[Rfam]
RNA sequence: AUAAUCAAAUACACUUUCACUCAUAUAAUCGCGGGGAUAUGGCCUGCAAGUUUCUACCGGAUGACCGUAAAGCAUCCGACUAUGGGUGAGCGAUGGACGGCA
Dot-bracket structure: .................((((((((...(.(((((.......))))).)........((((((.........))))))..))))))))..............
Shown here is a 102-nucleotide sequence from Rossellomorea aquimaris, a member of the family "Purine riboswitch aptamer". Taxonomically the source falls in Rossellomorea (Bacteria, Bacilli, Caryophanales, Bacillaceae). Rfam describes the family as follows. Riboswitches are metabolite binding domains within certain messenger RNAs that serve as precision sensors for their corresponding targets. Gene Ontology term of the family: purine nucleobase biosynthetic process. It scores 83 bits against the family's covariance model. Pairs were carried over by alignment from the consensus structure, which is taken from published work. The family is grouped with related families in Rfam's "Purine riboswitches".